[Rfam]
RNA: Iron response element I
RNA sequence: CGGCUUCUUGCUUCAACAGUGUUUGAACAAAACCUG
Numbered sequence: 001c002g003g004c005u006u007c008u009u010g011c012u013u014c015a016a017c018a019g020u021g022u023u024u025g026a027a028c029a030a031a032a033c034c035u036g
Stems, first nucleotide, its partner, number of pairs: 001036003005032002008029001010028001012027005017021001